The record is a 71-nucleotide RNA sequence from Pelusios castaneus, which matches "mir-451 microRNA precursor family" in Rfam. The organism belongs to Pelusios, within Eukaryota. The family's consensus secondary structure was predicted with RNAalifold. It scores 68 bits against the family's covariance model.
RNA sequence: UGGGGAGUGGCAGUAGAACCGUUGCCAUUACUAAAGUCAGUAAUGGUAACGGUUUAAUUGACACUCCCUGC
Numbered sequence: 001u002g003g004g005g006a007g008u009g010g011c012a013g014u015a016g017a018a019c020c021g022u023u024g025c026c027a028u029u030a031c032u033a034a035a036g037u038c039a040g041u042a043a044u045g046g047u048a049a050c051g052g053u054u055u056a057a058u059u060g061a062c063a064c065u066c067c068c069u070g071c
Stems, first nucleotide, its partner, number of pairs: 007064003011060003017054004022049011